[Rfam]
RNA sequence: UUUCCCAUUUGACUACCACGUUUUCUCCAAUUAGUAGAUUUCAGUGGCUAUGCUUAUGGGAUAGAUGAAAACUGCCAUGAUCUGAAGAGGGAGAGGAUUUGGUACCCUCCUUCUAUAUGAAAUGGCUGGACAGAAGAUG
Numbered sequence: 001u002u003u004c005c006c007a008u009u010u011g012a013c014u015a016c017c018a019c020g021u022u023u024u025c026u027c028c029a030a031u032u033a034g035u036a037g038a039u040u041u042c043a044g045u046g047g048c049u050a051u052g053c054u055u056a057u058g059g060g061a062u063a064g065a066u067g068a069a070a071a072c073u074g075c076c077a078u079g080a081u082c083u084g085a086a087g088a089g090g091g092a093g094a095g096g097a098u099u100u101g102g103u104a105c106c107c108u109c110c111u112u113c114u115a116u117a118u119g120a121a122a123u124g125g126c127u128g129g130a131c132a133g134a135a136g137a138u139g
Stems, first nucleotide, its partner, number of pairs: 004060004016047004074126004092114004
RNA: Small nucleolar RNA SNORA29